The family of this 191-nucleotide RNA from Apostichopus japonicus is "U2 spliceosomal RNA". A search with the family's covariance model found it, with a score of 124 bits. Rfam's curators write: U2 is a small nuclear RNA (snRNA) component of the spliceosome (involved in pre-mRNA splicing). Complementary binding between U2 snRNA (in an area lying towards the 5' end but 3' to hairpin I) and the branchpoint sequence (BPS) of the intron results the bulging out of an unpaired adenosine, on the BPS, which initiates a nucleophilic attack at the intronic 5' splice site, thus starting the first of two transesterification reactions that mediate splicing. The base pairs follow the family's consensus structure, which is taken from published work. The organism belongs to Apostichopus, within Eukaryota.
RNA sequence: AUUGUUAUUAAGUUUGAAUAAACUUGAAAGAAAGUAUCUGUUCUUUUCAGCUUAAUAUCUGAAACGCGACUCAUCGAGUCGCUUGUAUAUUAAACUGAUUUUUGCACAUGGACUAUGGAAUAGGAGCUUGCUCCGUCCUGGUCACGGGUUGGCCCGGUUUUGCACUACCUCCGGGAUUCGGCCCACUCCCU
Numbered sequence: 001a002u003u004g005u006u007a008u009u010a011a012g013u014u015u016g017a018a019u020a021a022a023c024u025u026g027a028a029a030g031a032a033a034g035u036a037u038c039u040g041u042u043c044u045u046u047u048c049a050g051c052u053u054a055a056u057a058u059c060u061g062a063a064a065c066g067c068g069a070c071u072c073a074u075c076g077a078g079u080c081g082c083u084u085g086u087a088u089a090u091u092a093a094a095c096u097g098a099u100u101u102u103u104g105c106a107c108a109u110g111g112a113c114u115a116u117g118g119a120a121u122a123g124g125a126g127c128u129u130g131c132u133c134c135g136u137c138c139u140g141g142u143c144a145c146g147g148g149u150u151g152g153c154c155c156g157g158u159u160u161u162g163c164a165c166u167a168c169c170u171c172c173g174g175g176a177u178u179c180g181g182c183c184c185a186c187u188c189c190c191u
Stems, first nucleotide, its partner, number of pairs: 004013003045064006066082007111143005117137002123134004146184006153175005